The family of this 82-nucleotide RNA sequence from Xanthomonas campestris is "Proteobacterial sRNA sX8". Lineage of the source: Bacteria > Pseudomonadota > Lysobacteraceae > Xanthomonas > Xanthomonas campestris pv. campestris. Pairs were carried over by alignment from the consensus structure, which was predicted with CMfinder. Rfam's curators put it in the seed alignment. The literature on the family includes a 2011 paper in Nucleic Acids Res by Schmidtke et al., "Genome-wide transcriptome analysis of the plant pathogen Xanthomonas identifies sRNAs with putative virulence functions".

RNA sequence: CUUCGCUAAGCACCGAGGCGAAGAAAGUAAUUGGGAAUCAACGACUUAGCGCUCUAAAGCAUGACUCGUUUCCCGCUCCAAA
Numbered sequence: 001c002u003u004c005g006c007u008a009a010g011c012a013c014c015g016a017g018g019c020g021a022a023g024a025a026a027g028u029a030a031u032u033g034g035g036a037a038u039c040a041a042c043g044a045c046u047u048a049g050c051g052c053u054c055u056a057a058a059g060c061a062u063g064a065c066u067c068g069u070u071u072c073c074c075g076c077u078c079c080a081a082a
Base pairs, nucleotide, nucleotide: 001023002022003021004020005019006018007017030077032075033074034073035072036071037070039068043065045063050059